[Rfam]
RNA sequence: GAGGAAAAGAAGAAGCACCCGCUUCUCACCUGAUUGACGCUUAUGCAGUUGGCAGGUCUUACGUGAAACUUUUUGUUUCUUACUGAAUUCGUAAGUGUGGGUGUGUUCACCUGCACUUUUUUAUUUGU
Numbered sequence: 001g002a003g004g005a006a007a008a009g010a011a012g013a014a015g016c017a018c019c020c021g022c023u024u025c026u027c028a029c030c031u032g033a034u035u036g037a038c039g040c041u042u043a044u045g046c047a048g049u050u051g052g053c054a055g056g057u058c059u060u061a062c063g064u065g066a067a068a069c070u071u072u073u074u075g076u077u078u079c080u081u082a083c084u085g086a087a088u089u090c091g092u093a094a095g096u097g098u099g100g101g102u103g104u105g106u107u108c109a110c111c112u113g114c115a116c117u118u119u120u121u122u123a124u125u126u127g128u
Stems, first nucleotide, its partner, number of pairs: 011026006028057003036050003039046002096115008
Dot-bracket structure: ..........((((((....)))))).(((.....(((((....)).)))....)))......................................((((((((....)))))))).............